[Rfam]
RNA sequence: AUGAAGGCAGCGGGAGAGAUUCAUAUGAAUCACCGAAGAAGUAAAACUUUCAGGUUGCAAGACCGCUGUUGGACA
Numbered sequence: 001a002u003g004a005a006g007g008c009a010g011c012g013g014g015a016g017a018g019a020u021u022c023a024u025a026u027g028a029a030u031c032a033c034c035g036a037a038g039a040a041g042u043a044a045a046a047c048u049u050u051c052a053g054g055u056u057g058c059a060a061g062a063c064c065g066c067u068g069u070u071g072g073a074c075a
Stems, first nucleotide, its partner, number of pairs: 006070008019030004032055003035051002039049003
Glycine riboswitch aptamer: a 75-nucleotide RNA sequence from Peptoclostridium litorale. The base pairs follow the family's consensus structure. Its family is annotated with glycine biosynthetic process in the Gene Ontology. It scores 51 bits against the family's covariance model. Lineage of the source: Bacteria > Clostridia > Peptoclostridiaceae > Peptoclostridium > Peptoclostridium litorale.